[Rfam]
RNA: SAM riboswitch aptamer (S box leader)
Organism: Pelobium manganitolerans
RNA sequence: CGCUUAUAGAGAAAGAUGGAGGGAUUAGACCCAGCGAAGUCUUAGCAACCUGUUCGCAAACAAGGUGCUACAUUCUAUCCGGCAGUAUGCUGGAAAAGAUAAGUC
Numbered sequence: 001c002g003c004u005u006a007u008a009g010a011g012a013a014a015g016a017u018g019g020a021g022g023g024a025u026u027a028g029a030c031c032c033a034g035c036g037a038a039g040u041c042u043u044a045g046c047a048a049c050c051u052g053u054u055c056g057c058a059a060a061c062a063a064g065g066u067g068c069u070a071c072a073u074u075c076u077a078u079c080c081g082g083c084a085g086u087a088u089g090c091u092g093g094a095a096a097a098g099a100u101a102a103g104u105c
Stems, first nucleotide, its partner, number of pairs: 002104006013043005021032003026077004044069004049065002051062004073097001078094006